[Rfam]
RNA sequence: GGCAAGAGUAGAAGCGUUCACCAGCCGCGCGCCAGAUCGAUGCGCAUGCGGGCUGGCCGGGAAUUGCUCUUGAA
Numbered sequence: 001g002g003c004a005a006g007a008g009u010a011g012a013a014g015c016g017u018u019c020a021c022c023a024g025c026c027g028c029g030c031g032c033c034a035g036a037u038c039g040a041u042g043c044g045c046a047u048g049c050g051g052g053c054u055g056g057c058c059g060g061g062a063a064u065u066g067c068u069c070u071u072g073a074a
Stems, first nucleotide, its partner, number of pairs: 005070006015059001018061002021056006
This 74-nucleotide sequence from Cupriavidus neocaledonicus belongs to the Rfam family "Xanthine riboswitch aptamer (NMT1 RNA)".
The base pairs follow the family's consensus structure, which is taken from published work.
Rfam links the family to the GO term purine nucleobase binding.
The source organism's lineage runs through Bacteria, Pseudomonadota, Betaproteobacteria, Burkholderiaceae and Cupriavidus.